[Rfam]
RNA sequence: UAGUAUGAUUGUAGGAAUUGAACCUACGAAUUCGCCAAUUAUGAGUUGGGUGCUUUAACCGUUCAGCCAUGAAUAC
Numbered sequence: 001u002a003g004u005a006u007g008a009u010u011g012u013a014g015g016a017a018u019u020g021a022a023c024c025u026a027c028g029a030a031u032u033c034g035c036c037a038a039u040u041a042u043g044a045g046u047u048g049g050g051u052g053c054u055u056u057a058a059c060c061g062u063u064c065a066g067c068c069a070u071g072a073a074u075a076c
Base pairs, nucleotide, nucleotide: 003076004075005074006073009071011027012026013025014024015023041070042069043068045067046066047065048064049063050062051061052060
A member of the RNA family "Plastid-ycf2 5UTR RNA" from Olea europaea, 76 nucleotides long.
Pairs were carried over by alignment from the consensus structure, which was predicted with LocARNA.
The organism belongs to Olea europaea, within Eukaryota.
Rfam 15.1 lists 3,521 matches to the family in 417 species.
The literature on the family includes a 2023 paper in Plant Commun by Richter et al., "Retrograde signaling in plants: A critical review focusing on the GUN pathway and beyond".
It is annotated as a cis-regulatory element.